[Rfam]
RNA: Caulobacter sRNA CrfA
RNA sequence: GUGAGAUCAACGAGCGCGCAGCCGCACGAGAUCUCCGGCGUUUCGGGGAGGAAACGCCCGCUCCACAGAGAGCAAAAGCCCGCCGCGUGUAUCCCCGCGGCGGGCUUUUCUUUUGGGU
Numbered sequence: 001g002u003g004a005g006a007u008c009a010a011c012g013a014g015c016g017c018g019c020a021g022c023c024g025c026a027c028g029a030g031a032u033c034u035c036c037g038g039c040g041u042u043u044c045g046g047g048g049a050g051g052a053a054a055c056g057c058c059c060g061c062u063c064c065a066c067a068g069a070g071a072g073c074a075a076a077a078g079c080c081c082g083c084c085g086c087g088u089g090u091a092u093c094c095c096c097g098c099g100g101c102g103g104g105c106u107u108u109u110c111u112u113u114u115g116g117g118u
Stems, first nucleotide, its partner, number of pairs: 001036001003035006012027001014025003037058008062117004074109014